[Rfam]
RNA sequence: AUCAGACAGUACGACGGUUUGGAGGAAGGUAAUCAUGUUCGUCGAUAAUGUGGUGCUCGCUGGGGUUGUCACAGUCGGCCUGAUGGUCGUCUUCCUUGGGGGCUUCGGAUAUUUCAUCUGGCGGGAUGCGCAAAAGAAGCGGUAAUCCGGCUGGAGCAACAGAGCACGCAAGGCAUUUGGGCGACUUAGGUCGCCCUUUUUUUUG
Dot-bracket structure: .........(.(.....................................(((.....)))................((((....)))).........).)...............................................................((.(....)))....(((((((....))))))).........
Numbered sequence: 001a002u003c004a005g006a007c008a009g010u011a012c013g014a015c016g017g018u019u020u021g022g023a024g025g026a027a028g029g030u031a032a033u034c035a036u037g038u039u040c041g042u043c044g045a046u047a048a049u050g051u052g053g054u055g056c057u058c059g060c061u062g063g064g065g066u067u068g069u070c071a072c073a074g075u076c077g078g079c080c081u082g083a084u085g086g087u088c089g090u091c092u093u094c095c096u097u098g099g100g101g102g103c104u105u106c107g108g109a110u111a112u113u114u115c116a117u118c119u120g121g122c123g124g125g126a127u128g129c130g131c132a133a134a135a136g137a138a139g140c141g142g143u144a145a146u147c148c149g150g151c152u153g154g155a156g157c158a159a160c161a162g163a164g165c166a167c168g169c170a171a172g173g174c175a176u177u178u179g180g181g182c183g184a185c186u187u188a189g190g191u192c193g194c195c196c197u198u199u200u201u202u203u204u205g
Stems, first nucleotide, its partner, number of pairs: 010100001012098001050060003077088004164174002167172001179196007
A member of the RNA family "PhrS" from Pseudomonas saudiphocaensis, 205 nucleotides long. For this family Rfam cites "Identification of 17 Pseudomonas aeruginosa sRNAs and prediction of sRNA-encoding genes in 10 diverse pathogens using the bioinformatic tool sRNAPredict2" (Livny et al., Nucleic Acids Res, 2006). A search with the family's covariance model found it, with a score of 160 bits. The family's consensus secondary structure was predicted with CMfinder. NCBI's taxonomy places the organism under Bacteria, Pseudomonadati, Pseudomonadota, Gammaproteobacteria, Pseudomonas.